RNA sequence: AAGUGUUACAGUACUUUCAGAAUUGGUCUGUUAGGCUUUCCAGUUUUCUCUGGAAAGCUCCU
Number, nucleotide and partner (000 for none) at each position: 001a000002a000003g000004u000005g000006u000007u000008a000009c000010a000011g000012u000013a000014c000015u000016u000017u000018c000019a000020g000021a000022a000023u000024u000025g000026g000027u000028c000029u000030g000031u000032u000033a000034g059035g058036c057037u056038u055039u054040c053041c052042a051043g050044u000045u000046u000047u000048c000049u000050c043051u042052g041053g040054a039055a038056a037057g036058c035059u034060c000061c000062u000
A member of the RNA family "U7 small nuclear RNA" from Pan paniscus, 62 nucleotides long. The source organism's lineage runs through Eukaryota, Deuterostomia, Dipnotetrapodomorpha, Eutheria and Pan. The literature on the family includes a 1994 paper in Nucleic Acids Res by Spycher et al., "3' end processing of mouse histone pre-mRNA: evidence for additional base-pairing between U7 snRNA and pre-mRNA". Animal histone pre-mRNAs are spliced by a different mechanism than nuclear pre-mRNAs and self-splicing introns. This processing involves the U7 snRNP, which contains only one RNA species: U7. The 5' end of U7 RNA is thought to base-pair to a conserved spacer element downstream of the cleavage site in histone pre-mRNA. This family contains a number of annotated U7 pseudogenes.